[Rfam]
RNA sequence: AGCACUAUUUUUAAACCUGUUGGUGGAAUUUCCUGACCACCAUGGGUUACGCUGUAGUGCAAAAGCAUCUCCUGGCUCUUUAGAGCACAGCUGACAUUGCUGAUGCUCCACUGAAGCUAGGGAACAGAA
Numbered sequence: 001a002g003c004a005c006u007a008u009u010u011u012u013a014a015a016c017c018u019g020u021u022g023g024u025g026g027a028a029u030u031u032c033c034u035g036a037c038c039a040c041c042a043u044g045g046g047u048u049a050c051g052c053u054g055u056a057g058u059g060c061a062a063a064a065g066c067a068u069c070u071c072c073u074g075g076c077u078c079u080u081u082a083g084a085g086c087a088c089a090g091c092u093g094a095c096a097u098u099g100c101u102g103a104u105g106c107u108c109c110a111c112u113g114a115a116g117c118u119a120g121g122g123a124a125c126a127g128a129a
Base pairs, nucleotide, nucleotide: 002060003059004058005057006056007055008054014048015047016046017045021042022041023040024039025038026037070123071122072121073120074118075117076116077115079113081110085106086105087104088102089101090100091099093097
Small nucleolar RNA SNORA46: a 129-nucleotide RNA from Serilophus lunatus. It scores 91 bits against the family's covariance model. From the family's description: ACA46 is a member of the H/ACA class of snoRNA that guide the sites of modification of uridines to pseudouridines. It is annotated as an H/ACA-box small nucleolar RNA. Pairs were carried over by alignment from the consensus structure, which was predicted with RNAfold. The organism belongs to Serilophus, within Eukaryota.